[Rfam]
RNA sequence: CUUUCUAGCAGAGAGGAUGCCUGGUUUGGCGGUUCCAGGCUAGUUCAGAGUGAGGUCGAGUUUGAAUUGUCAAUUCAGAUGAGUGGCCCGCUUUGCAAUGAACGUCCCCCACAAA
Numbered sequence: 001c002u003u004u005c006u007a008g009c010a011g012a013g014a015g016g017a018u019g020c021c022u023g024g025u026u027u028g029g030c031g032g033u034u035c036c037a038g039g040c041u042a043g044u045u046c047a048g049a050g051u052g053a054g055g056u057c058g059a060g061u062u063u064g065a066a067u068u069g070u071c072a073a074u075u076c077a078g079a080u081g082a083g084u085g086g087c088c089c090g091c092u093u094u095g096c097a098a099u100g101a102a103c104g105u106c107c108c109c110c111a112c113a114a115a
Stems, first nucleotide, its partner, number of pairs: 001015005019040006028110002031108002043099003046095003055087004060080002065075003
Shown here is a 115-nucleotide sequence, a member of the family "RAGATH-11 RNA". It is annotated as a small RNA. On this family, see Weinberg et al., Nat Chem Biol 2015: "New classes of self-cleaving ribozymes revealed by comparative genomics analysis". The family's consensus secondary structure is taken from published work.